[Rfam]
RNA sequence: GCCUACCAGAAUUGUCGCUACGGACACACGCGUAAAAAGUACAGCUUCAACAGCUAUGAAAUAGUAACUAAUGAAACGGUCGACACGUGUCCUGUUCUACUGCGAGAAGUAAGACAUAGUAUGGUAGUCGCCCCCAUGGAGUAAUCCGGGUGGCAGGAG
Numbered sequence: 001g002c003c004u005a006c007c008a009g010a011a012u013u014g015u016c017g018c019u020a021c022g023g024a025c026a027c028a029c030g031c032g033u034a035a036a037a038a039g040u041a042c043a044g045c046u047u048c049a050a051c052a053g054c055u056a057u058g059a060a061a062u063a064g065u066a067a068c069u070a071a072u073g074a075a076a077c078g079g080u081c082g083a084c085a086c087g088u089g090u091c092c093u094g095u096u097c098u099a100c101u102g103c104g105a106g107a108a109g110u111a112a113g114a115c116a117u118a119g120u121a122u123g124g125u126a127g128u129c130g131c132c133c134c135c136a137u138g139g140a141g142u143a144a145u146c147c148g149g150g151u152g153g154c155a156g157g158a159g
Base pairs, nucleotide, nucleotide: 003127004126005125006124007123008122013116014115015114016113022092023091024090025089026088027087095108096107097106098105130154131153132152134150135149138147139146140145
About this RNA: The family of this 159-nucleotide RNA from Candidatus Saccharibacteria bacterium RAAC3_TM7_1 is "lysM-TM7 RNA". It is annotated as a cis-regulatory element. The base pairs follow the family's consensus structure, which is taken from published work. Taxonomically the source falls in Candidatus Saccharimonadota (Bacteria, Bacteria candidate phyla). It scores 89 bits against the family's covariance model.